Description:
SAM riboswitch aptamer (S box leader): a 123-nucleotide RNA sequence from Mizugakiibacter sediminis. The source organism's lineage runs through Bacteria, Pseudomonadati, Pseudomonadota, Lysobacterales and Mizugakiibacter. The SAM riboswitch is found upstream of a number of genes which code for proteins involved in methionine or cysteine biosynthesis in Gram-positive bacteria.
RNA sequence: UGCUCAUCGAGACCGGCUGAGGGACAGGCCCUUUGAAGCCGGGGCAACCCGCGGAACCGCAAGGUCCGCACGGUGCCAACUCCUGCGGGGACGCGCCCGACGCGAUCUGCCGAGAGAUGAGUU
Numbered sequence: 001u002g003c004u005c006a007u008c009g010a011g012a013c014c015g016g017c018u019g020a021g022g023g024a025c026a027g028g029c030c031c032u033u034u035g036a037a038g039c040c041g042g043g044g045c046a047a048c049c050c051g052c053g054g055a056a057c058c059g060c061a062a063g064g065u066c067c068g069c070a071c072g073g074u075g076c077c078a079a080c081u082c083c084u085g086c087g088g089g090g091a092c093g094c095g096c097c098c099g100a101c102g103c104g105a106u107c108u109g110c111c112g113a114g115a116g117a118u119g120a121g122u123u
Stems, first nucleotide, its partner, number of pairs: 002122007013042005021031003025085004043077004048073002051069004081115001086112003